Shown here is a 72-nucleotide sequence from Callosobruchus maculatus, a member of the family "mir-1175 microRNA precursor family". NCBI's taxonomy places the organism under Eukaryota, Opisthokonta, Protostomia, Altocrustacea, Callosobruchus. The base pairs follow the family's consensus structure, which was predicted with RNAalifold. A search with the family's covariance model found it, with a score of 63 bits. Rfam 15.1 lists 181 matches to the family in 170 species.
RNA sequence: UUGAGUAAGUGGAGAAGUUGGUCUCUUCACUUUGUUCCAAUCAGUGAGAUUCUACUCCUCCAACUUAGCUUU
Numbered sequence: 001u002u003g004a005g006u007a008a009g010u011g012g013a014g015a016a017g018u019u020g021g022u023c024u025c026u027u028c029a030c031u032u033u034g035u036u037c038c039a040a041u042c043a044g045u046g047a048g049a050u051u052c053u054a055c056u057c058c059u060c061c062a063a064c065u066u067a068g069c070u071u072u
Base pairs, nucleotide, nucleotide: 007066008065009064010062011061012060013059014058017057019054024049025048027047028046029045030044031043